About this RNA
The family of this 102-nucleotide RNA sequence from Sarcina ventriculi is "Purine riboswitch aptamer". The family's consensus secondary structure is taken from published work.
RNA sequence: AUAUAAUGUUUAUAAAACCUUUAUAUAAGCUUAAUAAUAUGGUUUAAGCGUUUCUACCACAUCACCGUAAAUGGUGUGAUUAUUUAGGAUAUUUCCAUAAGA
Numbered sequence: 001a002u003a004u005a006a007u008g009u010u011u012a013u014a015a016a017a018c019c020u021u022u023a024u025a026u027a028a029g030c031u032u033a034a035u036a037a038u039a040u041g042g043u044u045u046a047a048g049c050g051u052u053u054c055u056a057c058c059a060c061a062u063c064a065c066c067g068u069a070a071a072u073g074g075u076g077u078g079a080u081u082a083u084u085u086a087g088g089a090u091a092u093u094u095c096c097a098u099a100a101g102a
Stems, first nucleotide, its partner, number of pairs: 018088003023083003029049006058078007